RNA sequence: GCGCGGUGUUCCUCACAACGGAUCGUCCGGCACGUUCCUGCCGGUGACGGAAGGCAAGA
Numbered sequence: 001g002c003g004c005g006g007u008g009u010u011c012c013u014c015a016c017a018a019c020g021g022a023u024c025g026u027c028c029g030g031c032a033c034g035u036u037c038c039u040g041c042c043g044g045u046g047a048c049g050g051a052a053g054g055c056a057a058g059a
Stems, first nucleotide, its partner, number of pairs: 009051003013047003027044006